RNA sequence: CCAAAGGCUCUUUUAAGAGCCACUCACAUCUUGUAAAGAGUAGAAU
Numbered sequence: 001c002c003a004a005a006g007g008c009u010c011u012u013u014u015a016a017g018a019g020c021c022a023c024u025c026a027c028a029u030c031u032u033g034u035a036a037a038g039a040g041u042a043g044a045a046u
Base pairs, nucleotide, nucleotide: 006021007020008019009018010017011016
RNA: Histone 3' UTR stem-loop
Organism: Takifugu rubripes